[Rfam]
RNA: Group II catalytic intron D1-D4-1
Organism: delta proteobacterium MLMS-1
Nucleotides: 080
Base pairs, nucleotide, nucleotide: 001026002025004023005022006021007020008019009018010017011016039046040045048080049079050078057073058072059071060070061069062068
Number, partner (000 for none) and nucleotide at each position: 001026c002025g003000u004023c005022c006021u007020g008019c009018a010017u011016g012000g013000c014000a015000a016011c017010a018009u019008g020007c021006a022005g023004g024000a025002u026001g027000a028000u029000c030000a031000g032000g033000c034000a035000g036000g037000a038000g039046u040045c041000a042000g043000c044000c045040g046039a047000g048080g049079c050078c051000a052000u053000a054000g055000u056000a057073g058072u059071u060070c061069c062068g063000g064000g065000c066000a067000a068062c069061g070060g071059a072058a073057c074000g075000a076000a077000g078050g079049g080048c